[Rfam]
RNA sequence: UCCGGGAGGCAGUGUGGUUAGCUGGUUGUCAGAAAUUGCAGACAACGGCUAUCACCACUGCCAUCCUGGC
Numbered sequence: 001u002c003c004g005g006g007a008g009g010c011a012g013u014g015u016g017g018u019u020a021g022c023u024g025g026u027u028g029u030c031a032g033a034a035a036u037u038g039c040a041g042a043c044a045a046c047g048g049c050u051a052u053c054a055c056c057a058c059u060g061c062c063a064u065c066c067u068g069g070c
Stems, first nucleotide, its partner, number of pairs: 002069005008062002011059004017053001019051003023048001025046006
mir-34 microRNA precursor family: a 70-nucleotide sequence from Steinernema hermaphroditum. The family has 113 seed sequences and 2,256 matches in Rfam 15.1. Gene Ontology terms of the family: miRNA-mediated post-transcriptional gene silencing and RISC complex. From the family's description: Human mir-34a was discovered computationally and later experimentally verified. The mature sequence is excised from the 5' arm of the hairpin. It scores 54 bits against the family's covariance model.